The family of this 116-nucleotide sequence from Antrihabitans stalagmiti is "SAM (S-adenosyl methionine) riboswitch aptamer". Gene Ontology terms of the family: regulation of gene expression and S-adenosylmethionine metabolic process. SAM-IV is a mRNA element that regulates gene expression via direct sensing of S-adenosylmethionine (SAM or AdoMet). A search with the family's covariance model found it, with a score of 105 bits. On this family, see Weinberg et al., RNA 2008: "The aptamer core of SAM-IV riboswitches mimics the ligand-binding site of SAM-I riboswitches". Clan: SAM clan. The base pairs follow the family's consensus structure, which is taken from published work.
RNA sequence: GGUCAUGAGUACCAGCGCACAGCCCCGGCUCGCUGGUCGGCAACCCUCCGCCACGGUGGGGUGCUCCGGGUGACGACCAGGCCGCACGUCCGAUUCGGGUGCGGCAAGCGUGGAUA
Number, nucleotide and partner (000 for none) at each position: 001g078002g077003u076004c075005a000006u000007g000008a000009g038010u000011a037012c036013c035014a034015g033016c032017g000018c000019a000020c000021a030022g029023c000024c000025c000026c000027g000028g000029c022030u021031c000032g016033c015034u014035g013036g012037u011038c009039g065040g064041c063042a000043a000044c061045c060046c059047u000048c056049c055050g000051c000052c000053a000054c000055g049056g048057u000058g000059g046060g045061g044062u000063g041064c040065u039066c000067c000068g000069g000070g000071u000072g000073a000074c000075g004076a003077c002078c001079a000080g000081g105082c104083c103084g102085c101086a100087c099088g000089u000090c098091c097092g096093a000094u000095u000096c092097g091098g090099g087100u086101g085102c084103g083104g082105c081106a000107a000108g000109c000110g000111u000112g000113g000114a000115u000116a000